A member of the RNA family "MIR394 microRNA precursor family" from Brassica rapa, 108 nucleotides long. The source organism's lineage runs through Eukaryota, Streptophyta, eudicotyledons, Brassiceae and Brassica. The literature on the family includes a 2006 paper in Genome Res by Lu et al., "MicroRNAs and other small RNAs enriched in the Arabidopsis RNA-dependent RNA polymerase-2 mutant". Rfam links the family to the GO terms RISC complex and miRNA-mediated post-transcriptional gene silencing.
RNA sequence: CUUACAGAUUUCUUUGGCAUUCUGUCCACCUCCUUUGUAUAUAAAUGUAAGUAUAUCGGUUGUGUGUGAAAGAAGGAGGUGGUCAUACUGCCAGUAGACAUCUGUUAG
Numbered sequence: 001c002u003u004a005c006a007g008a009u010u011u012c013u014u015u016g017g018c019a020u021u022c023u024g025u026c027c028a029c030c031u032c033c034u035u036u037g038u039a040u041a042u043a044a045a046u047g048u049a050a051g052u053a054u055a056u057c058g059g060u061u062g063u064g065u066g067u068g069a070a071a072g073a074a075g076g077a078g079g080u081g082g083u084c085a086u087a088c089u090g091c092c093a094g095u096a097g098a099c100a101u102c103u104g105u106u107a108g
Stems, first nucleotide, its partner, number of pairs: 011098001014094006023085002026082011